RNA sequence: CCAGUUGGCCGGACGGCCGCGGGCCGGUGCGCAAGCGCCGGCGCGAGGAAAGUCCGGGCUCCAUCGAAAUGCGGUGCCGGCUAACGGCCGGCGGGGGCGACCCCAGGGAAAGUGCCACAGAAAGCAAACCGCCCGGCCUCGGCCGCGGCAAGGGUGAAAGGGUGCGGUAAGAGCGCACCGGGGGACUGGUAACAGGACCCGCAUGGUAAACCCCACCGGGAGCAAAACCAAAUAGGGACGACGCGAGGGCAACCUCAGGCCGGUUUCGAGGCUGGUCGUCCGGGUUGGUUGCUCGAGCUGCGGCGCAAGCCGUCGCCUAGAGGAAUGGCCGUCACGUCCGCGUCGCGAGGCGCGGGCCAUACAGAACCCGGCUUACAGGCCAACUGGCAAC
Numbered sequence: 001c002c003a004g005u006u007g008g009c010c011g012g013a014c015g016g017c018c019g020c021g022g023g024c025c026g027g028u029g030c031g032c033a034a035g036c037g038c039c040g041g042c043g044c045g046a047g048g049a050a051a052g053u054c055c056g057g058g059c060u061c062c063a064u065c066g067a068a069a070u071g072c073g074g075u076g077c078c079g080g081c082u083a084a085c086g087g088c089c090g091g092c093g094g095g096g097g098c099g100a101c102c103c104c105a106g107g108g109a110a111a112g113u114g115c116c117a118c119a120g121a122a123a124g125c126a127a128a129c130c131g132c133c134c135g136g137c138c139u140c141g142g143c144c145g146c147g148g149c150a151a152g153g154g155u156g157a158a159a160g161g162g163u164g165c166g167g168u169a170a171g172a173g174c175g176c177a178c179c180g181g182g183g184g185a186c187u188g189g190u191a192a193c194a195g196g197a198c199c200c201g202c203a204u205g206g207u208a209a210a211c212c213c214c215a216c217c218g219g220g221a222g223c224a225a226a227a228c229c230a231a232a233u234a235g236g237g238a239c240g241a242c243g244c245g246a247g248g249g250c251a252a253c254c255u256c257a258g259g260c261c262g263g264u265u266u267c268g269a270g271g272c273u274g275g276u277c278g279u280c281c282g283g284g285u286u287g288g289u290u291g292c293u294c295g296a297g298c299u300g301c302g303g304c305g306c307a308a309g310c311c312g313u314c315g316c317c318u319a320g321a322g323g324a325a326u327g328g329c330c331g332u333c334a335c336g337u338c339c340g341c342g343u344c345g346c347g348a349g350g351c352g353c354g355g356g357c358c359a360u361a362c363a364g365a366a367c368c369c370g371g372c373u374u375a376c377a378g379g380c381c382a383a384c385u386g387g388c389a390a391c
Stems, first nucleotide, its partner, number of pairs: 001387010011376001012333007020045002023042006050374003054371005059222004072218005077091005092106001093104004107213002112211002114207003129153002131149003134145004161179006180202001181200003186195003226290004236281006260274001262272001264270001297316002300313005
A member of the RNA family "Bacterial RNase P class A" from Devosia enhydra, 391 nucleotides long. Rfam classes the family as a ribozyme.